[Rfam]
The family of this 83-nucleotide RNA sequence from Anaerocolumna chitinilytica is "c-di-GMP-I-GGC riboswitch aptamer".
On this family, see Smith et al., Biochemistry 2012: "Structural and biochemical characterization of linear dinucleotide analogues bound to the c-di-GMP-I aptamer".
The match comes from Rfam's covariance-model search (72 bits).
RNA sequence: AAUGAAAAAGGCAAACCUGCCGAAAGACAGGGACGCAAAGCUUCGGGCCUAAGACAGAAGUUAUGGCAGCCGGGUUACCAUGA
Numbered sequence: 001a002a003u004g005a006a007a008a009a010g011g012c013a014a015a016c017c018u019g020c021c022g023a024a025a026g027a028c029a030g031g032g033a034c035g036c037a038a039a040g041c042u043u044c045g046g047g048c049c050u051a052a053g054a055c056a057g058a059a060g061u062u063a064u065g066g067c068a069g070c071c072g073g074g075u076u077a078c079c080a081u082g083a
Stems, first nucleotide, its partner, number of pairs: 003080002011036002016031004021026001034069001039076004044072003047067003